Description: A member of the RNA family "Pistol ribozyme", 66 nucleotides long. A reference for the family is Weinberg et al. (2015), "New classes of self-cleaving ribozymes revealed by comparative genomics analysis", Nat Chem Biol. The base pairs follow the family's consensus structure, which is taken from published work. Gene Ontology term of the family: catalytic activity.

RNA sequence: AGUCGUUUGGGCGACUAUAAACAGACGAAUAAGCCCAAAGCGUUUCCUCGUAAGAGGAAGGACGGA
Numbered sequence: 001a002g003u004c005g006u007u008u009g010g011g012c013g014a015c016u017a018u019a020a021a022c023a024g025a026c027g028a029a030u031a032a033g034c035c036c037a038a039a040g041c042g043u044u045u046c047c048u049c050g051u052a053a054g055a056g057g058a059a060g061g062a063c064g065g066a
Stems, first nucleotide, its partner, number of pairs: 001016004006039006026064002033041001043060007